[Rfam]
RNA: Guanidine-II riboswitch aptamer (mini-ykkC)
RNA sequence: GCUCGAGGACGACCUCGGGCUCCAGCUCCUCAUCCGGACGACCCG
Numbered sequence: 001g002c003u004c005g006a007g008g009a010c011g012a013c014c015u016c017g018g019g020c021u022c023c024a025g026c027u028c029c030u031c032a033u034c035c036g037g038a039c040g041a042c043c044c045g
Base pairs, nucleotide, nucleotide: 001020002019003018004017005016006015007014008013034045036043037042
Dot-bracket structure: ((((((((....)))))))).............(.((....)).)